[Rfam]
Shown here is a 304-nucleotide part of an RNA from Dictyostelium purpureum, a member of the family "Eukaryotic large subunit ribosomal RNA". Gene Ontology terms of the family: ribosome and structural constituent of ribosome.

RNA sequence: GAGGCCGUUUUAUGUGCGAGUGUAAGAGUAAUUAAAACUCCGACGCGUAUUGAAAGAAAGAAUAUUCCGAAAGAUCGUUGCUACGGUAACCUUCUGUCAGGAAUACCCGAAUCAUGAGAACUCUGUUUCGAAAGGAUUUGCGGUAGAGCACAUAGAAUGGGACCCGAAAGGUUGUGAACUAUGCUUGAGGAAGGCGAAGCCAGGGGAAACUCUGGUGGAGGCUUGUCGCAAUGCUGACGUGCAAAUCGCUUGUCUAACUUGAGUAUAGGGGCGAAAGACUAAUCGAACAACCUAGUAGCUGGUU
Numbered sequence: 001g002a003g004g005c006c007g008u009u010u011u012a013u014g015u016g017c018g019a020g021u022g023u024a025a026g027a028g029u030a031a032u033u034a035a036a037a038c039u040c041c042g043a044c045g046c047g048u049a050u051u052g053a054a055a056g057a058a059a060g061a062a063u064a065u066u067c068c069g070a071a072a073g074a075u076c077g078u079u080g081c082u083a084c085g086g087u088a089a090c091c092u093u094c095u096g097u098c099a100g101g102a103a104u105a106c107c108c109g110a111a112u113c114a115u116g117a118g119a120a121c122u123c124u125g126u127u128u129c130g131a132a133a134g135g136a137u138u139u140g141c142g143g144u145a146g147a148g149c150a151c152a153u154a155g156a157a158u159g160g161g162a163c164c165c166g167a168a169a170g171g172u173u174g175u176g177a178a179c180u181a182u183g184c185u186u187g188a189g190g191a192a193g194g195c196g197a198a199g200c201c202a203g204g205g206g207a208a209a210c211u212c213u214g215g216u217g218g219a220g221g222c223u224u225g226u227c228g229c230a231a232u233g234c235u236g237a238c239g240u241g242c243a244a245a246u247c248g249c250u251u252g253u254c255u256a257a258c259u260u261g262a263g264u265a266u267a268g269g270g271g272c273g274a275a276a277g278a279c280u281a282a283u284c285g286a287a288c289a290a291c292c293u294a295g296u297a298g299c300u301g302g303u304u
Base pairs, nucleotide, nucleotide: 005160006159007158008157009156010155011154012153013152014151015150016149017148020046021045022044026040027039028038029037050057051056064104065103066102067101068100072095073094106143107142108140109139110138112135113134118129119128120127163302164301166299170292171291172290173289174288175287179268180267181266182265183264184263185262186261187260188259189258192224193223194222195221199216200215201214202213203212204211205210228253229252230251231250233249234248236247237246270280271279